Rfam assigns this 168-nucleotide RNA from Enterococcus faecalis to the family "M-box riboswitch aptamer (ykoK leader)". Rfam's curators write: M-box riboswitch, also know as ykoK leader is described as a metaloregulatory RNA that sense divalent metals and function as a genetic control element of genes related to divalent metal transport in bacteria. The organism belongs to Enterococcus faecalis, within Bacteria.
RNA sequence: AAAUAACCUUGUUAGGUGAGGCUCCUAUCCAAACAUAGGCUAUUGCGCAGAAAUGUCGAAAGACACCAAUGUGUAAAACAGGAAUGGUCGAAUUAAGGCUCUUCUAAAAAUAGCUAAGAGAAAUCUUUACGUUGGAUAGUGCUAAAGCUCAGACGAUGAGAACCGAUU
Numbered sequence: 001a002a003a004u005a006a007c008c009u010u011g012u013u014a015g016g017u018g019a020g021g022c023u024c025c026u027a028u029c030c031a032a033a034c035a036u037a038g039g040c041u042a043u044u045g046c047g048c049a050g051a052a053a054u055g056u057c058g059a060a061a062g063a064c065a066c067c068a069a070u071g072u073g074u075a076a077a078a079c080a081g082g083a084a085u086g087g088u089c090g091a092a093u094u095a096a097g098g099c100u101c102u103u104c105u106a107a108a109a110a111u112a113g114c115u116a117a118g119a120g121a122a123a124u125c126u127u128u129a130c131g132u133u134g135g136a137u138a139g140u141g142c143u144a145a146a147g148c149u150c151a152g153a154c155g156a157u158g159a160g161a162a163c164c165g166a167u168u
Stems, first nucleotide, its partner, number of pairs: 009160002011154002013096001015149003020143003025139008039114005045074005054065004081105004087099003116127003